[Rfam]
Nucleotides: 134
Stems, first nucleotide, its partner, number of pairs: 001058004007049002012044004017039001019036005070126001072124005082116002084113004089107006
Number, partner (000 for none) and nucleotide at each position: 001058g002057c003056c004055u005000g006000g007049u008048g009000g010000u011000u012044c013043c014042u015041a016000g017039a018000g019036u020035c021034a022033g023032c024000g025000u026000c027000a028000c029000a030000g031000u032023g033022c034021u035020g036019a037000a038000c039017u040000g041015u042014a043013g044012g045000u046000u047000u048008u049007a050000u051000u052000g053000a054000c055004a056003g057002g058001c059000a060000c061000a062000a063000a064000u065000c066000g067000a068000c069000u070126c071000u072124g073123c074122a075121a076120u077000g078000u079000u080000a081000u082116g083115c084113a085112u086111g087110g088000a089107a090106g091105c092104u093103g094102c095000c096000a097000c098000u099000a100000u101000a102094g103093c104092a105091g106090c107089u108000c109000u110087c111086c112085a113084u114000a115083g116082c117000c118000c119000g120076g121075u122074u123073g124072c125000a126070g127000a128000u129000a130000c131000a132000a133000a134000a
Rfam assigns this 134-nucleotide RNA sequence from Oryzias latipes to the family "Small nucleolar RNA SNORA84". The sequence is in the family's curated seed alignment. Taxonomically the source falls in Oryzias (Eukaryota, Craniata, Osteoglossocephalai, Adrianichthyoidei). For this family Rfam cites "Experimental RNomics: identification of 140 candidates for small non-messenger RNAs in the plant Arabidopsis thaliana" (Marker et al., Curr Biol, 2002). Rfam classes the family as an H/ACA-box small nucleolar RNA. Pairs were carried over by alignment from the consensus structure, which was predicted with WAR.